[Rfam]
RNA sequence: CUGCUUGUAGCAAUACCUGUUCCUCAUCCACUUAAGGACAGGAUUACAUCUGUGACAUACUAAAUUUAAAAGAAAUAUUAGGGCUGCCAACCUUAGAACAAAGGUUAUCUAGAAGUGUAUGUCUCUUUUAAAA
Numbered sequence: 001c002u003g004c005u006u007g008u009a010g011c012a013a014u015a016c017c018u019g020u021u022c023c024u025c026a027u028c029c030a031c032u033u034a035a036g037g038a039c040a041g042g043a044u045u046a047c048a049u050c051u052g053u054g055a056c057a058u059a060c061u062a063a064a065u066u067u068a069a070a071a072g073a074a075a076u077a078u079u080a081g082g083g084c085u086g087c088c089a090a091c092c093u094u095a096g097a098a099c100a101a102a103g104g105u106u107a108u109c110u111a112g113a114a115g116u117g118u119a120u121g122u123c124u125c126u127u128u129u130a131a132a133a
Base pairs, nucleotide, nucleotide: 003060006057007056008055016042017041018040019039020038021037022036071126072125073124084112089106090105091104092103093102094101
Rfam assigns this 133-nucleotide RNA from Neotoma lepida to the family "Small nucleolar RNA U109". Its family is annotated with nucleolus and RNA processing in the Gene Ontology. The literature on the family includes a 2003 paper in EMBO J by Richard et al., "A common sequence motif determines the Cajal body-specific localization of box H/ACA scaRNAs". Taxonomically the source falls in Neotoma (Eukaryota, Deuterostomia, Vertebrata, Myomorpha). The family's RNA type in Rfam is H/ACA-box small nucleolar RNA.